[Rfam]
RNA sequence: AAACAACCCCAUAUGUUUUGAUUAUUUGGCAGUUUUGGACCCCCAAGGCAAAAAAAAAAAAAAAAAUUUGACACUUUUUUUGCCUUGGGGGUUCAAAACUACCAAAGAAUCAAAACAUAGGGGGCUGUUU
Numbered sequence: 001a002a003a004c005a006a007c008c009c010c011a012u013a014u015g016u017u018u019u020g021a022u023u024a025u026u027u028g029g030c031a032g033u034u035u036u037g038g039a040c041c042c043c044c045a046a047g048g049c050a051a052a053a054a055a056a057a058a059a060a061a062a063a064a065a066a067u068u069u070g071a072c073a074c075u076u077u078u079u080u081u082g083c084c085u086u087g088g089g090g091g092u093u094c095a096a097a098a099c100u101a102c103c104a105a106a107g108a109a110u111c112a113a114a115a116c117a118u119a120g121g122g123g124g125c126u127g128u129u130u
Stems, first nucleotide, its partner, number of pairs: 001130002004127002007124002012119012025106005031100019